[Rfam]
This 92-nucleotide sequence from Rhizobium sp. Root149 belongs to the Rfam family "Rhizobiales sRNA Atu_Ti1". By type it is a small RNA. A search with the family's covariance model found it, with a score of 72 bits. Pairs were carried over by alignment from the consensus structure, which was predicted with WAR. The literature on the family includes a 2012 paper in RNA Biol by Wilms et al., "Deep sequencing uncovers numerous small RNAs on all four replicons of the plant pathogen Agrobacterium tumefaciens". The source organism's lineage runs through Bacteria, Alphaproteobacteria, Hyphomicrobiales, Rhizobiaceae and Rhizobium.
RNA sequence: GUCCAGAAUGCGGCGGACCAGAGCCACACGCUCAGCAUGACCAGGACUGCUGCCGGCCAGAAGCGCGAUGUCAUCGUCGCCAGGCCGGCAGC
Numbered sequence: 001g002u003c004c005a006g007a008a009u010g011c012g013g014c015g016g017a018c019c020a021g022a023g024c025c026a027c028a029c030g031c032u033c034a035g036c037a038u039g040a041c042c043a044g045g046a047c048u049g050c051u052g053c054c055g056g057c058c059a060g061a062a063g064c065g066c067g068a069u070g071u072c073a074u075c076g077u078c079g080c081c082a083g084g085c086c087g088g089c090a091g092c
Stems, first nucleotide, its partner, number of pairs: 001018004023047001025045001031039001049092010065080005